This 180-nucleotide RNA from Bacillus sp. Y1 belongs to the Rfam family "Lysine riboswitch aptamer". Pairs were carried over by alignment from the consensus structure, which is taken from published work.

[Rfam]
RNA sequence: AGAUGAGGUAGAGGUUGCGAAAAAUAUUAGUAGGUUGGAUGAGAGCCAGAGAAGCUCAAUGAUUUCAGUUGAAAGGAAUUUUCGCCGAAGCACUAUAAUUCUCUGACUAUAGUAGCUGGGCCUACAUCGAAUAGGUGUAGGACUGUCAUAGCUGGUUAGCUAUGUUGAACUAUCCAUUUG
Dot-bracket structure: ......(((((.....(((((((.(.......(((((((........................)))))))......).)))))))...(((((((((.(......).)))))).)))((.((((((((.....)))))))).))..((((((......)))))).....)))))......
About this RNA
From the family's description: Riboswitches are metabolite binding domains within certain messenger RNAs that serve as precision sensors for their corresponding targets. The source organism's lineage runs through Bacteria, Bacillota, Caryophanales, Bacillaceae and Bacillus. A search with the family's covariance model found it, with a score of 116 bits. Rfam links the family to the GO term lysine biosynthetic process.